[Rfam]
The family of this 90-nucleotide RNA sequence from Musa acuminata is "mir-160 microRNA precursor family". Rfam links the family to the GO terms RISC complex and miRNA-mediated post-transcriptional gene silencing. The family's consensus secondary structure was predicted with PFOLD. A reference for the family is Rhoades et al. (2002), "Prediction of plant microRNA targets", Cell.
RNA sequence: UUGCGCCUGGCUCCCUGUAUGCCACAUGCGUAGACCGAUGUCCAUGGGGAGAUUGGAUAUUGUGGGUGGCGUGCGAGGAGCCAAGCAUGA
Numbered sequence: 001u002u003g004c005g006c007c008u009g010g011c012u013c014c015c016u017g018u019a020u021g022c023c024a025c026a027u028g029c030g031u032a033g034a035c036c037g038a039u040g041u042c043c044a045u046g047g048g049g050a051g052a053u054u055g056g057a058u059a060u061u062g063u064g065g066g067u068g069g070c071g072u073g074c075g076a077g078g079a080g081c082c083a084a085g086c087a088u089g090a
Base pairs, nucleotide, nucleotide: 001090002089003088005086006085008083009082010081011080012079013078014077016075017074018073019072020071021070022069023068024067027064028063029062
The source organism's lineage runs through Eukaryota, Spermatophyta, Liliopsida, Zingiberales and Musa acuminata.